[Rfam]
RNA sequence: AUUUGCCAAUCAUGUUGACACCAUCCACUUGGGCUUGGUUUACUGGUCUCCCCGAGUACACUAUCAACAGCUAGGCCAAGUUGAAGGCCUAGUA
Number, nucleotide and partner (000 for none) at each position: 001a000002u000003u092004u091005g090006c000007c087008a000009a000010u000011c000012a000013u000014g000015u000016u000017g000018a000019c000020a000021c000022c000023a000024u000025c000026c000027a000028c000029u000030u000031g000032g000033g000034c000035u000036u000037g000038g000039u000040u000041u000042a000043c000044u000045g000046g000047u000048c000049u000050c000051c000052c000053c000054g000055a000056g000057u000058a000059c000060a000061c000062u000063a000064u000065c000066a000067a000068c000069a000070g000071c000072u000073a000074g000075g000076c000077c000078a000079a000080g000081u000082u000083g000084a000085a000086g000087g007088c000089c000090u005091a004092g003093u000094a000